Notes
This 85-nucleotide sequence from Senna tora belongs to the Rfam family "mir-156 microRNA precursor family". Lineage of the source: Eukaryota > Streptophyta > eudicotyledons > Fabaceae > Senna. On this family, see Reinhart et al., Genes Dev 2002: "MicroRNAs in plants". From the family's description: This family represents the plant microRNA (miRNA) precursor mir-156. A search with the family's covariance model found it, with a score of 65 bits. Its family is annotated with RISC complex and miRNA-mediated post-transcriptional gene silencing in the Gene Ontology.
[Rfam]
RNA sequence: UUGACAGAAGAGAGUGAGCACAUAGAGGCACUUGGUAUAGUUUUAUAUAUACUAUUGCUUUUGCGUGCUCAUUCUCUUCUGUCAG
Numbered sequence: 001u002u003g004a005c006a007g008a009a010g011a012g013a014g015u016g017a018g019c020a021c022a023u024a025g026a027g028g029c030a031c032u033u034g035g036u037a038u039a040g041u042u043u044u045a046u047a048u049a050u051a052c053u054a055u056u057g058c059u060u061u062u063g064c065g066u067g068c069u070c071a072u073u074c075u076c077u078u079c080u081g082u083c084a085g
Base pairs, nucleotide, nucleotide: 001085002084003083004082005081006080007079008078009077010076011075012074013073014072015071016070017069018068019067020066021065023063024062025061026060027059